[Rfam]
RNA sequence: GUGGUGGUAAUGCUUGCUUUAGGGGUGACAUACAGGGCACAUGUUGCCAGUAUUAUCCUUGGGAAGGUCUGAGACAUAGGUAAUUAACCCUCUAGAAGGGGGUGCUCCUAAUGGAGGAGUGGGUCAACAGAAACCAGGCUUAGCUGAGAGUAACAGCAUGUGAUGUCUAUAGACUGAUGCAUGGCUCUCAGUUCUAGUUGAAAGAGACCCAUUACCAGCAAAUGUAGUACAAUUUGCAAGAUGGCCCAAGGGCCAUAACUCAAUUCAGACUACUCUACCACCAU
Numbered sequence: 001g002u003g004g005u006g007g008u009a010a011u012g013c014u015u016g017c018u019u020u021a022g023g024g025g026u027g028a029c030a031u032a033c034a035g036g037g038c039a040c041a042u043g044u045u046g047c048c049a050g051u052a053u054u055a056u057c058c059u060u061g062g063g064a065a066g067g068u069c070u071g072a073g074a075c076a077u078a079g080g081u082a083a084u085u086a087a088c089c090c091u092c093u094a095g096a097a098g099g100g101g102g103u104g105c106u107c108c109u110a111a112u113g114g115a116g117g118a119g120u121g122g123g124u125c126a127a128c129a130g131a132a133a134c135c136a137g138g139c140u141u142a143g144c145u146g147a148g149a150g151u152a153a154c155a156g157c158a159u160g161u162g163a164u165g166u167c168u169a170u171a172g173a174c175u176g177a178u179g180c181a182u183g184g185c186u187c188u189c190a191g192u193u194c195u196a197g198u199u200g201a202a203a204g205a206g207a208c209c210c211a212u213u214a215c216c217a218g219c220a221a222a223u224g225u226a227g228u229a230c231a232a233u234u235u236g237c238a239a240g241a242u243g244g245c246c247c248a249a250g251g252g253c254c255a256u257a258a259c260u261c262a263a264u265u266c267a268g269a270c271u272a273c274u275c276u277a278c279c280a281c282c283a284u
Base pairs, nucleotide, nucleotide: 001284002283003282004281007278008277009276014238021060022059023058024057025056036048037047038046039045069268070267071266072265073264079216080215081214082213088102089101090100091099092098103118105116106115107114108113119212120211121210122209123208124207125206139197140196241256242255243254244253245252246251

The family of this 284-nucleotide RNA from Mytilus coruscus is "Nuclear RNase P". A search with the family's covariance model found it, with a score of 146 bits. The family's RNA type in Rfam is ribozyme. The base pairs follow the family's consensus structure, which is taken from published work. Rfam describes the family as follows. Ribonuclease P (RNase P) is a ubiquitous endoribonuclease, found in archaea, bacteria and eukarya as well as chloroplasts and mitochondria. Its best characterised activity is the generation of mature 5'-ends of tRNAs by cleaving the 5'-leader elements of precursor-tRNAs. Rfam links the family to the GO terms ribonuclease P complex, tRNA processing and ribonuclease P activity.